[Rfam]
RNA sequence: CCUGUCCACAAGGAGCUUACAGUCUAGAGAGAUUUACUAUAAUUACCAUUAUUAUCACAUAAUAAUGUACAUAUCUGUAAUUUACUUAUUUGUAUUAAAGUCUGUCUCCCCCUCUAGACUGUAAGCUCAUUGUGGGCAGG
Numbered sequence: 001c002c003u004g005u006c007c008a009c010a011a012g013g014a015g016c017u018u019a020c021a022g023u024c025u026a027g028a029g030a031g032a033u034u035u036a037c038u039a040u041a042a043u044u045a046c047c048a049u050u051a052u053u054a055u056c057a058c059a060u061a062a063u064a065a066u067g068u069a070c071a072u073a074u075c076u077g078u079a080a081u082u083u084a085c086u087u088a089u090u091u092g093u094a095u096u097a098a099a100g101u102c103u104g105u106c107u108c109c110c111c112c113u114c115u116a117g118a119c120u121g122u123a124a125g126c127u128c129a130u131u132g133u134g135g136g137c138a139g140g
Base pairs, nucleotide, nucleotide: 001140002139003138004137005136006135007134008133009132010131011130013128014127015126016125017124018123019122020121021120022119023118024117025116026115027114028113029112030107031106032105033104